Record summary
mir-236 microRNA precursor family: a 76-nucleotide sequence from Caenorhabditis briggsae. Its Rfam clan is "mir-8 microRNA precursor clan".
[Rfam]
RNA sequence: GUCCAGCGUCUUACCUGUUCAAUAUUUAGACUGACCAAACCCAUAGCUCUAAUACUGUCAGGUAAUGACGCUGGAU
Numbered sequence: 001g002u003c004c005a006g007c008g009u010c011u012u013a014c015c016u017g018u019u020c021a022a023u024a025u026u027u028a029g030a031c032u033g034a035c036c037a038a039a040c041c042c043a044u045a046g047c048u049c050u051a052a053u054a055c056u057g058u059c060a061g062g063u064a065a066u067g068a069c070g071c072u073g074g075a076u
Stems, first nucleotide, its partner, number of pairs: 001076010011065007020057002023054004028050003

Description: NCBI's taxonomy places the organism under Eukaryota, Nematoda, Chromadorea, Rhabditida, Caenorhabditis. The sequence is in the family's curated seed alignment. The base pairs follow the family's consensus structure, which was predicted with RNAalifold.